[Rfam]
RNA: Enterobacteria greA leader
RNA sequence: GUCAUACUACGGUGCAUCAAGGGAUAAAGUAAACGAUGACCCUUAAGGAACUCUAGGCUAAAAUGCGUAUCAAAAUGCAAAAUCGACGCUGACUUGGAGCAAACCUCCGAGCUCGGUUUCUUUU
Numbered sequence: 001g002u003c004a005u006a007c008u009a010c011g012g013u014g015c016a017u018c019a020a021g022g023g024a025u026a027a028a029g030u031a032a033a034c035g036a037u038g039a040c041c042c043u044u045a046a047g048g049a050a051c052u053c054u055a056g057g058c059u060a061a062a063a064u065g066c067g068u069a070u071c072a073a074a075a076u077g078c079a080a081a082a083u084c085g086a087c088g089c090u091g092a093c094u095u096g097g098a099g100c101a102a103a104c105c106u107c108c109g110a111g112c113u114c115g116g117u118u119u120c121u122u123u124u
Base pairs, nucleotide, nucleotide: 001040002039003038004037005036010035011034014030015029041048042047057071059069060068088117089116090115091114092113093111094110095109096108097107098106